The record is a 123-nucleotide sequence from Brachionus plicatilis, which matches "RAGATH-11 RNA" in Rfam.
It scores 88 bits against the family's covariance model.
For this family Rfam cites "New classes of self-cleaving ribozymes revealed by comparative genomics analysis" (Weinberg et al., Nat Chem Biol, 2015).
The source organism's lineage runs through Eukaryota, Opisthokonta, Eurotatoria, Monogononta and Brachionus.
RNA sequence: AUAUUCUCUGUCGAUUGUCGCUUGGUUUGUGGUUCCAAGCUAGUCUAAAUAGUUACCGAGUUCGCAGCCAAAUUAAAAGUGCUCGGAUGAGUGGCGCUGUUUAUGAUGAACGUCCCACGUGCU
Numbered sequence: 001a002u003a004u005u006c007u008c009u010g011u012c013g014a015u016u017g018u019c020g021c022u023u024g025g026u027u028u029g030u031g032g033u034u035c036c037a038a039g040c041u042a043g044u045c046u047a048a049a050u051a052g053u054u055a056c057c058g059a060g061u062u063c064g065c066a067g068c069c070a071a072a073u074u075a076a077a078a079g080u081g082c083u084c085g086g087a088u089g090a091g092u093g094g095c096g097c098u099g100u101u102u103a104u105g106a107u108g109a110a111c112g113u114c115c116c117a118c119g120u121g122c123u
Stems, first nucleotide, its partner, number of pairs: 001011003020040006029118004043107003046103003056094003060088002066083003